[Rfam]
RNA: c-di-AMP riboswitch aptamer (ydaO/yuaA leader)
RNA sequence: AAUUUAAUUACGCUUAAUUUCCGAUUUUCACAUCGGAAAGCGGGGGAACCAGUCUUUGGGGCGAAUCAUUCUUUGAUAAGAACGUAGGGAACCAUCUUCCCGAGCCCGUCAGCUAACCUCGUCUGCAGUGGAUGGGUCAGAG
Numbered sequence: 001a002a003u004u005u006a007a008u009u010a011c012g013c014u015u016a017a018u019u020u021c022c023g024a025u026u027u028u029c030a031c032a033u034c035g036g037a038a039a040g041c042g043g044g045g046g047a048a049c050c051a052g053u054c055u056u057u058g059g060g061g062c063g064a065a066u067c068a069u070u071c072u073u074u075g076a077u078a079a080g081a082a083c084g085u086a087g088g089g090a091a092c093c094a095u096c097u098u099c100c101c102g103a104g105c106c107c108g109u110c111a112g113c114u115a116a117c118c119u120c121g122u123c124u125g126c127a128g129u130g131g132a133u134g135g136g137u138c139a140g141a142g
Stems, first nucleotide, its partner, number of pairs: 012126002018039008040122006050058002059107003067084001069082002087101004